[Rfam]
Nucleotides: 145
Base pairs, nucleotide, nucleotide: 003062004061006059007058018044019043020042021041022040024038025037083138084137085136086135095125096124099121100119101118102117104115105114106113
Number, partner (000 for none) and nucleotide at each position: 001000u002000u003062g004061c005000a006059u007058g008000a009000g010000g011000a012000a013000a014000u015000a016000u017000g018044u019043u020042u021041g022040c023000c024038c025037c026000u027000c028000a029000u030000u031000c032000c033000u034000u035000u036000g037025g038024g039000a040022g041021c042020a043019g044018g045000a046000a047000u048000g049000c050000a051000u052000c053000c054000a055000u056000a057000a058007c059006a060000c061004g062003c063000u064000a065000c066000a067000u068000u069000a070000a071000a072000a073000a074000a075000a076000a077000a078000a079000a080000u081000a082000a083138g084137g085136a086135g087000u088000u089000c090000u091000c092000a093000g094000g095125g096124c097000u098000g099121u100119c101118a102117a103000a104115c105114u106113u107000g108000c109000g110000g111000u112000a113106g114105a115104g116000a117102u118101u119100g120000a121099g122000u123000a124096g125095u126000a127000g128000u129000a130000u131000a132000u133000u134000u135086c136085u137084c138083c139000u140000a141000c142000a143000u144000a145000a